[Rfam]
RNA: Small nucleolar RNA snR70
Organism: Naumovozyma castellii
RNA sequence: UUAAAUGAUGAUUAUUUAUCGACCGGGCGGACAUAUUAGUAUCAUCGAAGGAAUAGCUGGGCAUUGUUAUCUUUCUUUUGUGUACAAAUUUUAAAAGGAAAGGUAGCUUAGCAUAUUGUUUCUUUGUUGAGAAUUGAUGAUUGGUCUCAAGAUAGCUGACU
Numbered sequence: 001u002u003a004a005a006u007g008a009u010g011a012u013u014a015u016u017u018a019u020c021g022a023c024c025g026g027g028c029g030g031a032c033a034u035a036u037u038a039g040u041a042u043c044a045u046c047g048a049a050g051g052a053a054u055a056g057c058u059g060g061g062c063a064u065u066g067u068u069a070u071c072u073u074u075c076u077u078u079u080g081u082g083u084a085c086a087a088a089u090u091u092u093a094a095a096a097g098g099a100a101a102g103g104u105a106g107c108u109u110a111g112c113a114u115a116u117u118g119u120u121u122c123u124u125u126g127u128u129g130a131g132a133a134u135u136g137a138u139g140a141u142u143g144g145u146c147u148c149a150a151g152a153u154a155g156c157u158g159a160c161u
Stems, first nucleotide, its partner, number of pairs: 007156001009154002016150002021146005034139007042130003046126010056112004061108001067106013